[Rfam]
RNA sequence: CCACCAUAGAAACGUGGAGGAAAUUGUUUUUUGUAAAACAAUUUCCUCCACGUUUCUAUGGUGG
Numbered sequence: 001c002c003a004c005c006a007u008a009g010a011a012a013c014g015u016g017g018a019g020g021a022a023a024u025u026g027u028u029u030u031u032u033g034u035a036a037a038a039c040a041a042u043u044u045c046c047u048c049c050a051c052g053u054u055u056c057u058a059u060g061g062u063g064g
Stems, first nucleotide, its partner, number of pairs: 001064003005060004010055019